[Rfam]
RNA sequence: GUGCUGGCUUUGUCAAGUGGGUACUUCGCACUUUGCAACCUACUACAAAUGGGAUUUCAAUGGUCGCGGGUUCGAGUCCCGAUAGGGUUCGAACUCGUAGCUUAACUCCACCCACUGACGCUAUCCAGCACUUUU
Number, nucleotide and partner (000 for none) at each position: 001g000002u130003g129004c128005u127006g126007g125008c000009u000010u000011u000012g119013u118014c117015a116016a000017g115018u114019g113020g112021g000022u000023a000024c000025u076026u075027c074028g073029c000030a000031c000032u000033u000034u000035g000036c000037a000038a000039c000040c000041u000042a000043c000044u000045a000046c000047a000048a000049a000050u000051g000052g000053g000054a000055u000056u000057u000058c000059a000060a000061u000062g000063g000064u000065c000066g000067c000068g000069g000070g000071u000072u000073c028074g027075a026076g025077u000078c000079c000080c000081g000082a000083u000084a000085g000086g000087g000088u000089u000090c000091g000092a000093a000094c000095u000096c000097g000098u000099a000100g000101c000102u000103u000104a000105a000106c000107u000108c000109c000110a000111c000112c020113c019114a018115c017116u015117g014118a013119c012120g000121c000122u000123a000124u000125c007126c006127a005128g004129c003130a002131c000132u000133u000134u000135u000

The family of this 135-nucleotide RNA sequence from Branchiostoma lanceolatum is "Vault RNA". A search with the family's covariance model found it, with a score of 50 bits.